RNA sequence: AACAUCAUUUUAUAUCGCUCACGCUGGCCCCAUACUUUUGUAUUCAGAGGAGAAAGACAGUAUUUCUAGUUUCUUCAGGUUUUGGGGGUCGGCAAGAAGCGUAGACCAAAUUAUAGAUCGUUGCUGGGCGCCUGGUGUUGAUUUUUCUCGUAAAAAUAGGAAAUACUGGGAAUCAGCUGAUUCUACAUGC
Numbered sequence: 001a002a003c004a005u006c007a008u009u010u011u012a013u014a015u016c017g018c019u020c021a022c023g024c025u026g027g028c029c030c031c032a033u034a035c036u037u038u039u040g041u042a043u044u045c046a047g048a049g050g051a052g053a054a055a056g057a058c059a060g061u062a063u064u065u066c067u068a069g070u071u072u073c074u075u076c077a078g079g080u081u082u083u084g085g086g087g088g089u090c091g092g093c094a095a096g097a098a099g100c101g102u103a104g105a106c107c108a109a110a111u112u113a114u115a116g117a118u119c120g121u122u123g124c125u126g127g128g129c130g131c132c133u134g135g136u137g138u139u140g141a142u143u144u145u146u147c148u149c150g151u152a153a154a155a156a157u158a159g160g161a162a163a164u165a166c167u168g169g170g171a172a173u174c175a176g177c178u179g180a181u182u183c184u185a186c187a188u189g190c
Stems, first nucleotide, its partner, number of pairs: 016101003023093009037048004050076002053074001056071003116183002118180003131170002135166005142156005
RNA: Small nucleolar RNA snR32
Organism: Lachancea lanzarotensis